[Rfam]
RNA sequence: GACUUGUUAAUAAGAUGUUUCUAAUUGAAAUUGUCUGAUGAUAUCAACUAUAUAAUGAUUUCAGUACAUUACUGAGAUAAGCU
Numbered sequence: 001g002a003c004u005u006g007u008u009a010a011u012a013a014g015a016u017g018u019u020u021c022u023a024a025u026u027g028a029a030a031u032u033g034u035c036u037g038a039u040g041a042u043a044u045c046a047a048c049u050a051u052a053u054a055a056u057g058a059u060u061u062c063a064g065u066a067c068a069u070u071a072c073u074g075a076g077a078u079a080a081g082c083u
Stems, first nucleotide, its partner, number of pairs: 003081006
Record summary
A member of the RNA family "Small nucleolar RNA SNORD72" from Sula dactylatra, 83 nucleotides long. Lineage of the source: Eukaryota > Bilateria > Archosauria > Aequornithes > Sula. snoRNA HBII-240 belongs to the CD family of snoRNAs. It is the human orthologue of the mouse MBII-240 and is predicted to guide 2'O-ribose methylation of the large 28S rRNA at residue U4590. The base pairs follow the family's consensus structure. It scores 50 bits against the family's covariance model. Rfam classes the family as a C/D-box small nucleolar RNA. Rfam links the family to the GO terms nucleolus and RNA processing. Rfam 15.1 lists 726 matches to the family in 499 species.